[Rfam]
RNA sequence: UAUUAGGUUGGUGCAAAGGUAAUUGUGGUUUUUACCAUUGAAGGUAAUGGCAAAACCUCCAAUUACUUUUGCACCAACCUAAUA
Numbered sequence: 001u002a003u004u005a006g007g008u009u010g011g012u013g014c015a016a017a018g019g020u021a022a023u024u025g026u027g028g029u030u031u032u033u034a035c036c037a038u039u040g041a042a043g044g045u046a047a048u049g050g051c052a053a054a055a056c057c058u059c060c061a062a063u064u065a066c067u068u069u070u071g072c073a074c075c076a077a078c079c080u081a082a083u084a
Stems, first nucleotide, its partner, number of pairs: 001084025027058002030055004035050006